RNA sequence: GGAUGUGAGGGUGAUCUGGCUGCGACAUCUGUCACCCCAUUGAUCGCCAGGGUUGAUUUGGCUGAUCUGGCUGGCUAGGCAGGUGUCCCCUUCCUCCCUCCAUGUGCGUCCCUCCCGAAGCUGCGCGCUCGGUCGAAGAGGACGACCUCAUCCCGAUAGAGACGGUACCGUUCAUUGGUCAAGGGUAUAUGGUAGCUGCGCUCCCCUGCUAGAACCUCCAAACAAGCUCAAGGUCCAUUUGUAGGAGAACGUAGGGUAGUCAAGCUUCCAAGAAUUUAUUUUUAUUUCUGUGCCUG
Numbered sequence: 001g002g003a004u005g006u007g008a009g010g011g012u013g014a015u016c017u018g019g020c021u022g023c024g025a026c027a028u029c030u031g032u033c034a035c036c037c038c039a040u041u042g043a044u045c046g047c048c049a050g051g052g053u054u055g056a057u058u059u060g061g062c063u064g065a066u067c068u069g070g071c072u073g074g075c076u077a078g079g080c081a082g083g084u085g086u087c088c089c090c091u092u093c094c095u096c097c098c099u100c101c102a103u104g105u106g107c108g109u110c111c112c113u114c115c116c117g118a119a120g121c122u123g124c125g126c127g128c129u130c131g132g133u134c135g136a137a138g139a140g141g142a143c144g145a146c147c148u149c150a151u152c153c154c155g156a157u158a159g160a161g162a163c164g165g166u167a168c169c170g171u172u173c174a175u176u177g178g179u180c181a182a183g184g185g186u187a188u189a190u191g192g193u194a195g196c197u198g199c200g201c202u203c204c205c206c207u208g209c210u211a212g213a214a215c216c217u218c219c220a221a222a223c224a225a226g227c228u229c230a231a232g233g234u235c236c237a238u239u240u241g242u243a244g245g246a247g248a249a250c251g252u253a254g255g256g257u258a259g260u261c262a263a264g265c266u267u268c269c270a271a272g273a274a275u276u277u278a279u280u281u282u283u284a285u286u287u288c289u290g291u292g293c294c295u296g
Base pairs, nucleotide, nucleotide: 001101002100003099009098010097011096013093014092018090019089024087025086026085027084028083029082030081031080032079033078035074036073037070038069039068042067043066044065045064046062047061048060109165110164112161113160114159115132116131117130118129120128121127133156134155135154140152141151195265196264197263201259202258204256205255206254207253208252209251216247217246218245219244222242223241224240225239226238
The family of this 296-nucleotide RNA sequence from Galbula dea is "7SK RNA".
The match comes from Rfam's covariance-model search (278 bits).
It is annotated as a non-coding RNA gene.
A reference for the family is Blencowe (2002), "Transcription: surprising role for an elusive small nuclear RNA", Curr Biol.
Its Rfam clan is "7SK clan".
The family has 45 seed sequences and 49,373 matches in Rfam 15.1.
7SK was discovered as an abundant small nuclear RNA in the mid-70s but a possible function has only recently been suggested. Two independent studies have found that 7SK RNA binds the CDK9/cyclin T complex (known as elongation factor P-TEFb).